Bacterial RNase P class A: a 342-nucleotide sequence from Rhodoferax koreensis. Rfam classes the family as a ribozyme. Lineage of the source: Bacteria > Pseudomonadati > Pseudomonadota > Comamonadaceae > Rhodoferax. Gene Ontology terms of the family: ribonuclease P activity, tRNA processing and dimeric ribonuclease P complex. A reference for the family is Beauregard et al. (2013), "Identification and characterization of small RNAs in Yersinia pestis", RNA Biol.

RNA sequence: GAAGCUCGCCAAGACCGCCGCUGGUGCAAUCUGGGAAACCAGGCACUGGAGGAACGUCCGGACUGCACAGGGCAGCGUAGCAGCUAAUGGCUGUCCACCGUGAGGUGAGGAUCAGAGCAACAGAGACGAGUCAGGUCGGGCAAAAGCCCGACUUGGGUGAAACGGGCAAUCUCUACGCGCAGCAAUACCAAGUAGGCCAACGUUGACGGGGCCCCCGGAGUUGGCGGGUAGGUAGCAUCGAGCCGGGUGGGCGACCCCCGGCCCAGAUUAAUGGCGGUCACGUUCCCGGCGCUGCAAGGUGCUGGGAAUGCACAGAAUCCGGCUUAUCGGCGAGCUUCACAC
Numbered sequence: 001g002a003a004g005c006u007c008g009c010c011a012a013g014a015c016c017g018c019c020g021c022u023g024g025u026g027c028a029a030u031c032u033g034g035g036a037a038a039c040c041a042g043g044c045a046c047u048g049g050a051g052g053a054a055c056g057u058c059c060g061g062a063c064u065g066c067a068c069a070g071g072g073c074a075g076c077g078u079a080g081c082a083g084c085u086a087a088u089g090g091c092u093g094u095c096c097a098c099c100g101u102g103a104g105g106u107g108a109g110g111a112u113c114a115g116a117g118c119a120a121c122a123g124a125g126a127c128g129a130g131u132c133a134g135g136u137c138g139g140g141c142a143a144a145a146g147c148c149c150g151a152c153u154u155g156g157g158u159g160a161a162a163c164g165g166g167c168a169a170u171c172u173c174u175a176c177g178c179g180c181a182g183c184a185a186u187a188c189c190a191a192g193u194a195g196g197c198c199a200a201c202g203u204u205g206a207c208g209g210g211g212c213c214c215c216c217g218g219a220g221u222u223g224g225c226g227g228g229u230a231g232g233u234a235g236c237a238u239c240g241a242g243c244c245g246g247g248u249g250g251g252c253g254a255c256c257c258c259c260g261g262c263c264c265a266g267a268u269u270a271a272u273g274g275c276g277g278u279c280a281c282g283u284u285c286c287c288g289g290c291g292c293u294g295c296a297a298g299g300u301g302c303u304g305g306g307a308a309u310g311c312a313c314a315g316a317a318u319c320c321g322g323c324u325u326a327u328c329g330g331c332g333a334g335c336u337u338c339a340c341a342c
Base pairs, nucleotide, nucleotide: 001338002337003336004335005334006333007332008331009330010329011327013279014278015277016276017275018274019273021049022048023047024046025045026044027043054325056323058322059321060320061319062318063182064181065180066179070214071213072212073211075178076177077176078175079174080094081093082092083091084090095109096107097106098105099104110173111172115171116170117167118166131156132155133154134153135152136151137150138149139148140147141146186234187233188232189231196225197224198223199222200221201220207217208216209215242262243261244260245259246258247257249256250255